[Rfam]
RNA sequence: UGUCUCCUCUAUUUCUCCCCUGGAAAAAUAGAUUGCAAGCCCGUUGUAUGACGGGCUUUUUUUC
Numbered sequence: 001u002g003u004c005u006c007c008u009c010u011a012u013u014u015c016u017c018c019c020c021u022g023g024a025a026a027a028a029u030a031g032a033u034u035g036c037a038a039g040c041c042c043g044u045u046g047u048a049u050g051a052c053g054g055g056c057u058u059u060u061u062u063u064c
Stems, first nucleotide, its partner, number of pairs: 008032007038057008